[Rfam]
RNA sequence: ACUCCAUCUACCCAGUGUUUAGCCUACCUGUUCAGGACUCUCAAAUCGCACAAUAGUCUGCACAUUGCUUAGGCUAGGCU
Numbered sequence: 001a002c003u004c005c006a007u008c009u010a011c012c013c014a015g016u017g018u019u020u021a022g023c024c025u026a027c028c029u030g031u032u033c034a035g036g037a038c039u040c041u042c043a044a045a046u047c048g049c050a051c052a053a054u055a056g057u058c059u060g061c062a063c064a065u066u067g068c069u070u071a072g073g074c075u076a077g078g079c080u
Stems, first nucleotide, its partner, number of pairs: 013067006020060003024056003029052003033048001
Notes: mir-199 microRNA precursor family: an 80-nucleotide sequence from Carlito syrichta. The literature on the family includes a 2001 paper in Cell by Ambros, "microRNAs: tiny regulators with great potential". This family consists of the microRNA (miRNA) precursor mir-199 which appears to be specific to humans. The family has 83 seed sequences and 1,828 matches in Rfam 15.1. The family's consensus secondary structure was predicted with RNAalifold.